[Rfam]
RNA sequence: ACGGUGCUUUUUAGAAGUGCUUUGCUAUACUAGGGGCUGUUAAUUAUCUGAACUGAUAAUUAGGGACUACCGCAAUCCUAAGCUCCUAGUUUUGCU
Numbered sequence: 001a002c003g004g005u006g007c008u009u010u011u012u013a014g015a016a017g018u019g020c021u022u023u024g025c026u027a028u029a030c031u032a033g034g035g036g037c038u039g040u041u042a043a044u045u046a047u048c049u050g051a052a053c054u055g056a057u058a059a060u061u062a063g064g065g066a067c068u069a070c071c072g073c074a075a076u077c078c079u080a081a082g083c084u085c086c087u088a089g090u091u092u093u094g095c096u
Stems, first nucleotide, its partner, number of pairs: 003021007031088008041062007

This 96-nucleotide sequence belongs to the Rfam family "RT-8 RNA". The family's RNA type in Rfam is small RNA. The base pairs follow the family's consensus structure, which is taken from published work.